[Rfam]
RNA sequence: UGAUAGCUGUGAAGCGUGAGGUUGCCGUCAAACCGAAAAUAAUAAGGAAUGACGGGUUUUCCGCUGAGCGAAUGUCAGUAGCGGGAAUAAGUUUUACCCGCAAAAAUAUUGACGACAA
Dot-bracket structure: .............(((.((((...(((((.....................)))))..)))))))........((((.((................................)))))).